[Rfam]
Record summary:
Small nucleolar RNA snoR136: a 143-nucleotide sequence from Mikania micrantha. Pairs were carried over by alignment from the consensus structure, which was predicted with mfold. The family has 8 seed sequences and 452 matches in Rfam 15.1. Rfam classes the family as an H/ACA-box small nucleolar RNA.
RNA sequence: GUGGCUUCAAGAACUUUGAAUGUGAAUUUGCUGAAUGUAAUAUGUAUCUGCAAGUUUUUGAUUCUAUGUAGCCUAGAGAAAUGUUCCCCUCGCUAUCCAUUGUUACCAUUGAUGUUGCAUUUGGACGUUGGGAAACUACAUUU
Numbered sequence: 001g002u003g004g005c006u007u008c009a010a011g012a013a014c015u016u017u018g019a020a021u022g023u024g025a026a027u028u029u030g031c032u033g034a035a036u037g038u039a040a041u042a043u044g045u046a047u048c049u050g051c052a053a054g055u056u057u058u059u060g061a062u063u064c065u066a067u068g069u070a071g072c073c074u075a076g077a078g079a080a081a082u083g084u085u086c087c088c089c090u091c092g093c094u095a096u097c098c099a100u101u102g103u104u105a106c107c108a109u110u111g112a113u114g115u116u117g118c119a120u121u122u123g124g125a126c127g128u129u130g131g132g133a134a135a136c137u138a139c140a141u142u143u
Base pairs, nucleotide, nucleotide: 002075003073004072005071008068009067010065011064012063013062016060019057020056026055027054028053029052030051031050033048035047036046037045083136084135085134087132088131089130091127092126096125097124098123099122105115106114
Dot-bracket structure: .((((..((((((..(..((.....((((((.(.(((.......)))).))))))))..).)))).))..))).).......(((.(((.((...((((.....((.......))......))))))..))).))).......